[Rfam]
RNA sequence: UGGUCCGGCCGUGACUGGCGAUCGGGUAGAGUACUACCGGGAAGCGGUCGGGUUCCUUCGUCGCCUGCCGUCCGCCUGGGCAGGGUUC
Numbered sequence: 001u002g003g004u005c006c007g008g009c010c011g012u013g014a015c016u017g018g019c020g021a022u023c024g025g026g027u028a029g030a031g032u033a034c035u036a037c038c039g040g041g042a043a044g045c046g047g048u049c050g051g052g053u054u055c056c057u058u059c060g061u062c063g064c065c066u067g068c069c070g071u072c073c074g075c076c077u078g079g080g081c082a083g084g085g086u087u088c
Stems, first nucleotide, its partner, number of pairs: 003053010015041002017076004026037004065083005
Dot-bracket structure: ..((((((((((..(([[[[.....((((....))))..))..))))))))))...........(((((...]]]]..))))).....
The family of this 88-nucleotide sequence from Lautropia mirabilis is "ZMP/ZTP riboswitch aptamer (pfl RNA motif)". The base pairs follow the family's consensus structure, which is taken from published work. The match comes from Rfam's covariance-model search (62 bits). The family has 185 seed sequences and 3,295 matches in Rfam 15.1.